[Rfam]
About this RNA
This 73-nucleotide sequence belongs to the Rfam family "RAGATH-18 RNA". Actinobacteria, Firmicutes, Fusobacteria, Thermotogae (1 example). The sequence is in the family's curated seed alignment. By type it is a small RNA.

RNA sequence: ACUAUGGAGUGUACAAGAACUUGUGAGUAGAUAUGAUUUCGGUCAAUCCAAAGCAUACACGAUGAAGUAGUAA
Numbered sequence: 001a002c003u004a005u006g007g008a009g010u011g012u013a014c015a016a017g018a019a020c021u022u023g024u025g026a027g028u029a030g031a032u033a034u035g036a037u038u039u040c041g042g043u044c045a046a047u048c049c050a051a052a053g054c055a056u057a058c059a060c061g062a063u064g065a066a067g068u069a070g071u072a073a
Base pairs, nucleotide, nucleotide: 001071002070003069004068005067009060010059011058012057013056022055023054024053030048031047032046034045035044
Dot-bracket structure: (((((...(((((........(((.....(((.((........)))))....))))))))......)))))..